The record is a 109-nucleotide RNA sequence from Fulvimarina manganoxydans, which matches "rpsB sRNA" in Rfam. Taxonomically the source falls in Fulvimarina (Bacteria, Pseudomonadati, Pseudomonadota, Aurantimonadaceae). The family's consensus secondary structure is taken from published work.
[Rfam]
RNA sequence: CACACACGGGAACCGGACGGCACGCGUCUUUUCGCGAAGGCGCUUCCGUCCACCGGUGGCGAAUUCUUCGCUCGAUCCCGUGGAGGCUUAACCGGAAAAGGCAAGACAA
Numbered sequence: 001c002a003c004a005c006a007c008g009g010g011a012a013c014c015g016g017a018c019g020g021c022a023c024g025c026g027u028c029u030u031u032u033c034g035c036g037a038a039g040g041c042g043c044u045u046c047c048g049u050c051c052a053c054c055g056g057u058g059g060c061g062a063a064u065u066c067u068u069c070g071c072u073c074g075a076u077c078c079c080g081u082g083g084a085g086g087c088u089u090a091a092c093c094g095g096a097a098a099a100g101g102c103a104a105g106a107c108a109a
Stems, first nucleotide, its partner, number of pairs: 001085001003083001005082006015051002033048002036046001059071004